RNA sequence: GGGUUCCGAGGCGCCCGCGCCUCGGCCUCAUUGAAGC
Numbered sequence: 001g002g003g004u005u006c007c008g009a010g011g012c013g014c015c016c017g018c019g020c021c022u023c024g025g026c027c028u029c030a031u032u033g034a035a036g037c
Stems, first nucleotide, its partner, number of pairs: 006025007
RNA: CRISPR RNA direct repeat element